The record is a 72-nucleotide RNA sequence from Kalanchoe fedtschenkoi, which matches "Small nucleolar RNA snoR60" in Rfam. By type it is a C/D-box small nucleolar RNA. Its Rfam clan is "SNORD101 clan". The organism belongs to Kalanchoe, within Eukaryota. Gene Ontology terms of the family: RNA processing and nucleolus.
RNA sequence: AAGCGUAUGAUGAUAAUACUUGGAUUCCCCUUUAGGACAUCUUGGAUGAUGCAAAGUUGAGUUUCUGAUGCU
Numbered sequence: 001a002a003g004c005g006u007a008u009g010a011u012g013a014u015a016a017u018a019c020u021u022g023g024a025u026u027c028c029c030c031u032u033u034a035g036g037a038c039a040u041c042u043u044g045g046a047u048g049a050u051g052c053a054a055a056g057u058u059g060a061g062u063u064u065c066u067g068a069u070g071c072u
Base pairs, nucleotide, nucleotide: 002072003071004070005069